This 89-nucleotide RNA sequence from Andreesenella acetica belongs to the Rfam family "c-di-GMP-I riboswitch aptamer". GEMM was predicted in a large-scale screen for bacterial structured RNA regulatory elements.
[Rfam]
RNA sequence: UUUAGAUAAUAGCAAACUAGUUGAAAGGCAAGGAUACAAAGCAAUGAGACUAAGGGAAAACACUUUUCUAUGAUUGCCAGGCUGCUAAA
Numbered sequence: 001u002u003u004a005g006a007u008a009a010u011a012g013c014a015a016a017c018u019a020g021u022u023g024a025a026a027g028g029c030a031a032g033g034a035u036a037c038a039a040a041g042c043a044a045u046g047a048g049a050c051u052a053a054g055g056g057a058a059a060a061c062a063c064u065u066u067u068c069u070a071u072g073a074u075u076g077c078c079a080g081g082c083u084g085c086u087a088a089a
Stems, first nucleotide, its partner, number of pairs: 012037001017032002020029003040083003045079002048074001050072001055068004
Annotation
It scores 49 bits against the family's covariance model. Rfam links the family to the GO term cyclic-di-GMP binding.